[Rfam]
RNA sequence: UUCCGAAAAAGGCAAACCCGGCGAAAGCCGGGGACGCAAAGCUACAGGGGCUAAAGCAGGUUGUCCUGCUAUGCCAGCCAGCUGCCGAA
Numbered sequence: 001u002u003c004c005g006a007a008a009a010a011g012g013c014a015a016a017c018c019c020g021g022c023g024a025a026a027g028c029c030g031g032g033g034a035c036g037c038a039a040a041g042c043u044a045c046a047g048g049g050g051c052u053a054a055a056g057c058a059g060g061u062u063g064u065c066c067u068g069c070u071a072u073g074c075c076a077g078c079c080a081g082c083u084g085c086c087g088a089a
Base pairs, nucleotide, nucleotide: 012037013036017032018031019030020029021028022027040083041082042081043080047079048078049075050074051073056069057068058067059066